A member of the RNA family "Mammalian CPEB3 ribozyme" from Alligator sinensis, 75 nucleotides long. The base pairs follow the family's consensus structure, which is taken from published work. The mammalian CPEB3 ribozyme is a self cleaving RNA located in the second intron of the CPEB3 gene which belongs to a family of genes regulating messenger RNA polyadenylation. This ribozyme is highly conserved and found only in mammals. The CPEB3 ribozyme is structurally and biochemically related to the human hepatitis delta virus (HDV) ribozyme and the HDV ribozyme is proposed to have arisen from the human transcriptome.

[Rfam]
RNA sequence: CCAAAAGUUCAAGGCCACAGCAGAAGUGCUCAUGGUAUGGCCAUAUCAGAUUCUACCGAAUCUGCAAGUUCUGAU
Number, nucleotide and partner (000 for none) at each position: 001c000002c000003a000004a000005a000006a000007g000008u000009u000010c000011a000012a000013g042014g041015c040016c039017a000018c000019a075020g000021c073022a072023g071024a070025a069026g038027u037028g036029c000030u000031c000032a000033u000034g000035g000036u028037a027038u026039g016040g015041c014042c013043a000044u000045a000046u000047c064048a063049g062050a061051u060052u059053c058054u000055a000056c000057c000058g053059a052060a051061u050062c049063u048064g047065c000066a000067a000068g000069u025070u024071c023072u022073g021074a000075u019